[Rfam]
Nucleotides: 141
Base pairs, nucleotide, nucleotide: 003064004063005062006061007060008059009058010057016052017051018050019049023043024042025041077134078133079132080131081130082129083128085124086123088121089120090119091118092117093116097112098111099110
Number, partner (000 for none) and nucleotide at each position: 001000u002000c003064g004063c005062a006061g007060g008059a009058g010057c011000c012000u013000c014000c015000c016052g017051g018050g019049c020000u021000a022000a023043u024042c025041u026000g027000a028000u029000a030000a031000g032000a033000u034000u035000a036000c037000u038000u039000g040000a041025g042024g043023a044000a045000c046000c047000a048000u049019g050018c051017c052016c053000c054000a055000a056000a057010g058009c059008u060007c061006u062005u063004g064003c065000u066000a067000g068000a069000u070000u071000g072000c073000u074000u075000u076000u077134g078133c079132c080131g081130u082129u083128u084000g085124u086123g087000u088121u089120g090119c091118a092117g093116g094000c095000u096000c097112g098111c099110c100000u101000u102000u103000u104000u105000c106000u107000u108000u109000a110099g111098g112097c113000u114000u115000u116093u117092c118091u119090g120089u121088g122000u123086c124085a125000a126000a127000a128083a129082a130081g131080c132079g133078g134077c135000u136000a137000a138000a139000u140000c141000c

Description: small nucleolar RNA snoR134: a 141-nucleotide RNA sequence from Microthlaspi erraticum. For this family Rfam cites "Mining small RNA sequencing data: a new approach to identify small nucleolar RNAs in Arabidopsis" (Chen and Wu, Nucleic Acids Res, 2009). The base pairs follow the family's consensus structure, which was predicted with RNAalifold. NCBI's taxonomy places the organism under Eukaryota, Viridiplantae, Brassicales, Brassicaceae, Microthlaspi. It scores 113 bits against the family's covariance model.